A member of the RNA family "MIR1886 microRNA precursor family" from Solanum commersonii, 52 nucleotides long. It scores 63 bits against the family's covariance model. Its family is annotated with RISC complex and miRNA-mediated post-transcriptional gene silencing in the Gene Ontology. The family has 4 seed sequences and 1,053 matches in Rfam 15.1. The family's consensus secondary structure was predicted with RNAalifold.
RNA sequence: UAAGAUGGAAUUAGCAUUUGGACAUGCGAUUUUACGCUGAUUCCGUCUCAUG
Number, nucleotide and partner (000 for none) at each position: 001u050002a000003a048004g047005a046006u045007g044008g043009a042010a041011u040012u039013a038014g037015c036016a000017u034018u029019u028020g027021g000022a000023c000024a000025u000026g000027c020028g019029a018030u000031u000032u000033u000034a017035c000036g015037c014038u013039g012040a011041u010042u009043c008044c007045g006046u005047c004048u003049c000050a001051u000052g000